[Rfam]
RNA sequence: CCAGAUGUCCAUCGUGUCUUACGGUAAAGAAAAACCUGCAGUACUGGGCCACGACGAAGCCGCAUGGGCUAAAAACCGUCGCGCCGUACUGGUGUACUAAGAGAGUCAUAUGAUUAGUAACUUCAGACGUCAUGCACUG
Dot-bracket structure: ((((...(.....((.(.((........)).).))....)...))))......(....(..((.(..(......((.((((.(..((.((...........)).))..).))).).)).....)..).))..)....).
Shown here is a 139-nucleotide RNA sequence from Tatumella ptyseos, a member of the family "CpoB/ybgF ICR thermometer".
Pairs were carried over by alignment from the consensus structure.
About the family: Imprinting control region from upstream of cpoB/ybgF (tol/pal system protein).